RNA sequence: CGCACGACGGCGCCCGCGGGCAUACGGCGAACCGGGGACCCACCUUGCACCAUCGGGGUGAAUCCGCGCCCGGCGCGCGGUAGGGCGAUCUUUCCCGCCCGAAUCCGUCAGCUAACCCGGUAGGCGGCCAGGGGAAGAAAG
Numbered sequence: 001c002g003c004a005c006g007a008c009g010g011c012g013c014c015c016g017c018g019g020g021c022a023u024a025c026g027g028c029g030a031a032c033c034g035g036g037g038a039c040c041c042a043c044c045u046u047g048c049a050c051c052a053u054c055g056g057g058g059u060g061a062a063u064c065c066g067c068g069c070c071c072g073g074c075g076c077g078c079g080g081u082a083g084g085g086c087g088a089u090c091u092u093u094c095c096c097g098c099c100c101g102a103a104u105c106c107g108u109c110a111g112c113u114a115a116c117c118c119g120g121u122a123g124g125c126g127g128c129c130a131g132g133g134g135a136a137g138a139a140a141g
Base pairs, nucleotide, nucleotide: 001029002028031121032120033119034118035117036116041055056106057105058104064080065079066078067077083100084099085098086097

The record is a 141-nucleotide RNA from Micromonospora pattaloongensis, which matches "c-di-AMP riboswitch aptamer (ydaO/yuaA leader)" in Rfam. Lineage of the source: Bacteria > Bacillati > Actinomycetes > Micromonosporales > Micromonospora. The base pairs follow the family's consensus structure. About the family: This family represents a conserved RNA structure found upstream of the ydaO and yuaA genes in Bacillus subtilis and related genes in other bacteria. The ydaO/yuaA element is thought to act as a genetic 'off' switch for the ydaO and yuaA genes in its native state. It is believed that the element may be triggered during osmotic shock leading to activation of ydaO, a predicted amino acid transporter gene, and members of the yuaA-yubG operon which code for KtrA and KtrB K+ transporters.